[Rfam]
RNA sequence: UCUGUGGUGAUGAGACGCGCAGGGGUACGGACCUCAGCCGAUGAUGGGGGCUGAGUGCUGCUGCUCCGCUCUGAUUGGAGGACGUGUGGUUCACCGGUCAGGGCGCCAGCAGCACGAGACAGACGCCACACUGAACAGA
Numbered sequence: 001u002c003u004g005u006g007g008u009g010a011u012g013a014g015a016c017g018c019g020c021a022g023g024g025g026u027a028c029g030g031a032c033c034u035c036a037g038c039c040g041a042u043g044a045u046g047g048g049g050g051c052u053g054a055g056u057g058c059u060g061c062u063g064c065u066c067c068g069c070u071c072u073g074a075u076u077g078g079a080g081g082a083c084g085u086g087u088g089g090u091u092c093a094c095c096g097g098u099c100a101g102g103g104c105g106c107c108a109g110c111a112g113c114a115c116g117a118g119a120c121a122g123a124c125g126c127c128a129c130a131c132u133g134a135a136c137a138g139a
Stems, first nucleotide, its partner, number of pairs: 001139005
The family of this 139-nucleotide RNA from Labrus bergylta is "Small nucleolar RNA SNORD94". A search with the family's covariance model found it, with a score of 66 bits. Rfam 15.1 lists 802 matches to the family in 622 species. Taxonomically the source falls in Labrus (Eukaryota, Eumetazoa, Percomorphaceae, Eupercaria). Pairs were carried over by alignment from the consensus structure, which was predicted with RNAalifold. It is annotated as a C/D-box small nucleolar RNA. Rfam links the family to the GO terms RNA processing and nucleolus.